[Rfam]
RNA sequence: UUUGCGAGAACCGCGUGAAUCACUAUACUACUUGAUUCACACGGUUCUCGCCG
Numbered sequence: 001u002u003u004g005c006g007a008g009a010a011c012c013g014c015g016u017g018a019a020u021c022a023c024u025a026u027a028c029u030a031c032u033u034g035a036u037u038c039a040c041a042c043g044g045u046u047c048u049c050g051c052c053g
Stems, first nucleotide, its partner, number of pairs: 004051010015040008